[Rfam]
RNA: Group II catalytic intron D1-D4-3
Organism: Flavobacterium tibetense
RNA sequence: UUUACCGCGAGGUAUGCACUGAAGGAAGUCAAACGGCAAAAGUCUGUACUGACGAACAGAAAGUACAUAAGAGGCAUAGCAGUAAGGAUGAGUAUCCACAGCAAUACGAAGUCCAAAACAGUGUUCUGAACAUGCUACUAAAUCAGAUUACUGUCAUGUAGAUGUACCAGGAAUAGACGGAAGGAAAAAGCGGU
Numbered sequence: 001u002u003u004a005c006c007g008c009g010a011g012g013u014a015u016g017c018a019c020u021g022a023a024g025g026a027a028g029u030c031a032a033a034c035g036g037c038a039a040a041a042g043u044c045u046g047u048a049c050u051g052a053c054g055a056a057c058a059g060a061a062a063g064u065a066c067a068u069a070a071g072a073g074g075c076a077u078a079g080c081a082g083u084a085a086g087g088a089u090g091a092g093u094a095u096c097c098a099c100a101g102c103a104a105u106a107c108g109a110a111g112u113c114c115a116a117a118a119c120a121g122u123g124u125u126c127u128g129a130a131c132a133u134g135c136u137a138c139u140a141a142a143u144c145a146g147a148u149u150a151c152u153g154u155c156a157u158g159u160a161g162a163u164g165u166a167c168c169a170g171g172a173a174u175a176g177a178c179g180g181a182a183g184g185a186a187a188a189a190g191c192g193g194u
Stems, first nucleotide, its partner, number of pairs: 001016001003014004028194003037184001042178005047172001049170003063167006074159003079154006086114004092107004